RNA sequence: ACAACAUACGGACAUUAGGUCUACCGAGCAAUUACACCCGCUCAGUGGAAGAUCUUCUCUUUGUAAU
Numbered sequence: 001a002c003a004a005c006a007u008a009c010g011g012a013c014a015u016u017a018g019g020u021c022u023a024c025c026g027a028g029c030a031a032u033u034a035c036a037c038c039c040g041c042u043c044a045g046u047g048g049a050a051g052a053u054c055u056u057c058u059c060u061u062u063g064u065a066a067u
Stems, first nucleotide, its partner, number of pairs: 004064003010058003016052001020049005026043004
The record is a 67-nucleotide sequence from Bombyx mori, which matches "mir-2774 microRNA precursor family" in Rfam. The family's consensus secondary structure was predicted with RNAalifold. The literature on the family includes a 2010 paper in BMC Genomics by Liu et al., "MicroRNAs of Bombyx mori identified by Solexa sequencing". NCBI's taxonomy places the organism under Eukaryota, Mandibulata, Pancrustacea, Altocrustacea, Bombyx. A search with the family's covariance model found it, with a score of 64 bits.